Background: The family of this 178-nucleotide RNA from Anaerofilum hominis is "Lysine riboswitch aptamer". Riboswitches are metabolite binding domains within certain messenger RNAs that serve as precision sensors for their corresponding targets.

[Rfam]
RNA sequence: AAAAGAGGUAGAGGCGCGCCGUCGAUGAGUAGCCGGGAGGAGGCCGAAAGCCAGAGAACCCCGGGGAAAGGCGCCGGCGCCGAAGCGGCGGGAUCACACCCGCUGCUGGGUCCGUAUCGAACAGGUGCGGGACUGUCCUUCCGGCAUUGCCGGGCCGGAAGGGAGCGCUAUUGCGGCA
Numbered sequence: 001a002a003a004a005g006a007g008g009u010a011g012a013g014g015c016g017c018g019c020c021g022u023c024g025a026u027g028a029g030u031a032g033c034c035g036g037g038a039g040g041a042g043g044c045c046g047a048a049a050g051c052c053a054g055a056g057a058a059c060c061c062c063g064g065g066g067a068a069a070g071g072c073g074c075c076g077g078c079g080c081c082g083a084a085g086c087g088g089c090g091g092g093a094u095c096a097c098a099c100c101c102g103c104u105g106c107u108g109g110g111u112c113c114g115u116a117u118c119g120a121a122c123a124g125g126u127g128c129g130g131g132a133c134u135g136u137c138c139u140u141c142c143g144g145c146a147u148u149g150c151c152g153g154g155c156c157g158g159a160a161g162g163g164a165g166c167g168c169u170a171u172u173g174c175g176g177c178a
Base pairs, nucleotide, nucleotide: 007172008171009170010169011168016080017079018078019077020076021075023073024072033064034063035062036061037060084107085106086105087104088103089102090101091100092099108134109133111131112130113129114128115127116126117125118124136163137162138161139160140159141158142157143156144155145154
The source organism's lineage runs through Bacteria, Bacillota, Clostridia, Oscillospiraceae and Anaerofilum. The match comes from Rfam's covariance-model search (100 bits).